[Rfam]
Nucleotides: 111
Stems, first nucleotide, its partner, number of pairs: 003110003025086004
Number, partner (000 for none) and nucleotide at each position: 001000g002000a003110c004109g005108c006000c007000u008000a009000u010000c011000a012000u013000g014000a015000u016000g017000a018000a019000a020000u021000a022000u023000u024000g025086c026085g027084g028083a029000u030000g031000u032000a033000a034000a035000u036000c037000a038000u039000u040000a041000u042000c043000g044000u045000c046000u047000u048000g049000u050000c051000g052000g053000a054000a055000a056000a057000g058000c059000g060000c061000a062000a063000c064000u065000u066000a067000c068000a069000c070000g071000a072000u073000g074000u075000c076000g077000a078000a079000a080000c081000u082000u083028u084027c085026c086025g087000u088000u089000g090000c091000c092000u093000u094000c095000c096000u097000u098000c099000u100000g101000a102000a103000u104000u105000g106000a107000a108005g109004c110003g111000u